[Rfam]
RNA sequence: CUGGAGUUGAUUUAAUGAUUCGUAUCGCUCGCUUUAACGGUCUACUACUACUAAACGCAUCUUCGUUGCGCGGUAGACUGGUGAGCGACAUUCAGCAUUAAGUCAGCAUCAGUAAGAUUAAAAACCCGCGCCGUUGCGCGGGUUUUUUU
Numbered sequence: 001c002u003g004g005a006g007u008u009g010a011u012u013u014a015a016u017g018a019u020u021c022g023u024a025u026c027g028c029u030c031g032c033u034u035u036a037a038c039g040g041u042c043u044a045c046u047a048c049u050a051c052u053a054a055a056c057g058c059a060u061c062u063u064c065g066u067u068g069c070g071c072g073g074u075a076g077a078c079u080g081g082u083g084a085g086c087g088a089c090a091u092u093c094a095g096c097a098u099u100a101a102g103u104c105a106g107c108a109u110c111a112g113u114a115a116g117a118u119u120a121a122a123a124a125c126c127c128g129c130g131c132c133g134u135u136g137c138g139c140g141g142g143u144u145u146u147u148u149u
Stems, first nucleotide, its partner, number of pairs: 004109001006107005012101006025088009048076005056070004121146011
RNA: Leucine operon leader